About this RNA
This 104-nucleotide RNA from Conger conger belongs to the Rfam family "Vault RNA". It scores 64 bits against the family's covariance model. Rfam classes the family as a non-coding RNA gene. The family's consensus secondary structure is taken from published work.
[Rfam]
RNA sequence: GCGUCGGCUUAGCUCAGUGGUUACUUCGUUUGUCAAACUCUCGCAGUUACGCCAAACUCUACCUUCUCCGGAGGGUUGAACCACGGGCGCUGUCUGGCGUUUUU
Numbered sequence: 001g002c003g004u005c006g007g008c009u010u011a012g013c014u015c016a017g018u019g020g021u022u023a024c025u026u027c028g029u030u031u032g033u034c035a036a037a038c039u040c041u042c043g044c045a046g047u048u049a050c051g052c053c054a055a056a057c058u059c060u061a062c063c064u065u066c067u068c069c070g071g072a073g074g075g076u077u078g079a080a081c082c083a084c085g086g087g088c089g090c091u092g093u094c095u096g097g098c099g100u101u102u103u104u
Base pairs, nucleotide, nucleotide: 002099003098004097005096006095007094012088013087014086015085017084018083019082020081025080026079027078028077
Dot-bracket structure: .((((((....((((.((((....((((................................................)))))))))))).....)))))).....